[Rfam]
Nucleotides: 068
Stems, first nucleotide, its partner, number of pairs: 008034005014028002038061008
Number, partner (000 for none) and nucleotide at each position: 001000u002000g003000u004000c005000u006000c007000c008034u009033c010032c011031a012030a013000c014028u015027c016000u017000c018000c019000u020000c021000a022000g023000a024000a025000a026000a027015g028014a029000a030012u031011u032010g033009g034008a035000u036000u037000u038061a039060g040059g041058c042057c043056c044055a045054c046000c047000c048000g049000c050000a051000a052000c053000g054045g055044u056043g057042g058041g059040c060039c061038u062000u063000u064000u065000u066000u067000u068000u
A member of the RNA family "Betaproteobacteria toxic small RNA" from Massilia sp. Leaf139, 68 nucleotides long. The base pairs follow the family's consensus structure, which was predicted with WAR. Rfam describes the family as follows. Overexpression in amino aid rich medium attenuates growth, suggesting role in repressing amino acid intake and metabolism. Rfam 15.1 lists 951 matches to the family in 508 species.